[Rfam]
RNA sequence: CUCUUAUCCAGAGCGGCGGAGGGAAUAGGCCCUAUGAAGCCCGGCAACCUUUAAACAGCAAGUUUAAAAAGGUGCUAAAUCCUACAGAUCAAUUGGUCUGGAAGAUAAGAG
Number, nucleotide and partner (000 for none) at each position: 001c111002u110003c109004u108005u107006a106007u105008c104009c000010a000011g000012a000013g042014c000015g041016g040017c039018g000019g000020a000021g032022g031023g030024a000025a000026u084027a083028g082029g081030c023031c022032c021033u000034a000035u000036g000037a000038a000039g017040c016041c015042c013043g076044g075045c074046a073047a000048c072049c071050u068051u067052u066053a065054a064055a063056c000057a000058g000059c000060a000061a000062g000063u055064u054065u053066a052067a051068a050069a000070a000071g049072g048073u046074g045075c044076u043077a000078a000079a000080u103081c029082c028083u027084a026085c100086a099087g098088a097089u096090c095091a000092a000093u000094u000095g090096g089097u088098c087099u086100g085101g000102a000103a080104g008105a007106u006107a005108a004109g003110a002111g001